[Rfam]
RNA sequence: CAUAAUCCUAUUUACGAUGCACAAGUAAAGACAGAUUAUGAAUCCACGUGGUAAGGACACAGUUAGGUUCGCUGUGAGUGCAUCCUUUAGUAGCAACUAACCAAAGCAAGUAUAGAUGGGAAUAAGCUAUUACCUCGAUAGGCUUAAUGAGGUGCUUGACAGUCUGACACUAACUGAACAAUAAGUGUCA
Numbered sequence: 001c002a003u004a005a006u007c008c009u010a011u012u013u014a015c016g017a018u019g020c021a022c023a024a025g026u027a028a029a030g031a032c033a034g035a036u037u038a039u040g041a042a043u044c045c046a047c048g049u050g051g052u053a054a055g056g057a058c059a060c061a062g063u064u065a066g067g068u069u070c071g072c073u074g075u076g077a078g079u080g081c082a083u084c085c086u087u088u089a090g091u092a093g094c095a096a097c098u099a100a101c102c103a104a105a106g107c108a109a110g111u112a113u114a115g116a117u118g119g120g121a122a123u124a125a126g127c128u129a130u131u132a133c134c135u136c137g138a139u140a141g142g143c144u145u146a147a148u149g150a151g152g153u154g155c156u157u158g159a160c161a162g163u164c165u166g167a168c169a170c171u172a173a174c175u176g177a178a179c180a181a182u183a184a185g186u187g188u189c190a
Stems, first nucleotide, its partner, number of pairs: 001040007011029005054087003058076005101119003107158005132153005165190007
Dot-bracket structure: (((((((...(((((.........)))))....))))))).............(((.(((((.........)))))........))).............[[[...(((((.....]]]............(((((............))))))))))......(((((((............)))))))
A member of the RNA family "RAGATH-7 RNA", 190 nucleotides long. The family's RNA type in Rfam is small RNA. The literature on the family includes a 2015 paper in Nat Chem Biol by Weinberg et al., "New classes of self-cleaving ribozymes revealed by comparative genomics analysis". The family's consensus secondary structure is taken from published work.